[Rfam]
RNA sequence: AUAAAUGCUUUGAUGGGAAAUAGUAAAACAAAAGAACUUGAUAGAGAGUCUUUGGCUGGUGGAAAAAGAUAUGCUUCUUUGUUUGAACACAUCCUUGAGCAGUAAAGAUGAACCUUAGUAGUCUUUAUCGGGGUCCCUGCAUCCGUUAUCAUGCUAGAGUAUGUUGGUACUCGAAGAGGUUGGUAUCGUGAGAUAUCAAUAAAAUAAGGUGGAAUCACGUAAGUUAAACUUUCGUCCUUUGG
Numbered sequence: 001a002u003a004a005a006u007g008c009u010u011u012g013a014u015g016g017g018a019a020a021u022a023g024u025a026a027a028a029c030a031a032a033a034g035a036a037c038u039u040g041a042u043a044g045a046g047a048g049u050c051u052u053u054g055g056c057u058g059g060u061g062g063a064a065a066a067a068g069a070u071a072u073g074c075u076u077c078u079u080u081g082u083u084u085g086a087a088c089a090c091a092u093c094c095u096u097g098a099g100c101a102g103u104a105a106a107g108a109u110g111a112a113c114c115u116u117a118g119u120a121g122u123c124u125u126u127a128u129c130g131g132g133g134u135c136c137c138u139g140c141a142u143c144c145g146u147u148a149u150c151a152u153g154c155u156a157g158a159g160u161a162u163g164u165u166g167g168u169a170c171u172c173g174a175a176g177a178g179g180u181u182g183g184u185a186u187c188g189u190g191a192g193a194u195a196u197c198a199a200u201a202a203a204a205u206a207a208g209g210u211g212g213a214a215u216c217a218c219g220u221a222a223g224u225u226a227a228a229c230u231u232u233c234g235u236c237c238u239u240u241g242g
Stems, first nucleotide, its partner, number of pairs: 007100002015095004026084006037073001039071001048070006103127007129145003179200007206239004217235003221231003